[Rfam]
RNA sequence: UGCACUCACUGCUGCAAGUCGCUCUCGAUAAGAGCAUCUGCUAAAUGACUCAAA
Numbered sequence: 001u002g003c004a005c006u007c008a009c010u011g012c013u014g015c016a017a018g019u020c021g022c023u024c025u026c027g028a029u030a031a032g033a034g035c036a037u038c039u040g041c042u043a044a045a046u047g048a049c050u051c052a053a054a
Base pairs, nucleotide, nucleotide: 013043014041015040016039021035022034023033024032025031
A member of the RNA family "UnaL2 LINE 3' element" from Oncorhynchus kisutch, 54 nucleotides long. NCBI's taxonomy places the organism under Eukaryota, Euteleostomi, Teleostei, Euteleosteomorpha, Oncorhynchus.